[Rfam]
RNA: RAGATH-18 RNA
Nucleotides: 067
Stems, first nucleotide, its partner, number of pairs: 001065005009054005022049003030042003033037001
Number, partner (000 for none) and nucleotide at each position: 001065c002064c003063u004062g005061u006000g007000g008000a009054g010053u011052g012051u013050u014000a015000u016000a017000g018000c019000a020000a021000a022049c023048g024047a025000a026000a027000g028000u029000a030042g031041u032040c033037g034000c035000a036000g037033u038000u039000u040032g041031a042030c043000g044000a045000a046000a047024u048023c049022g050013g051012a052011c053010a054009c055000a056000a057000g058000g059000a060000a061005g062004c063003a064002g065001g066000a067000a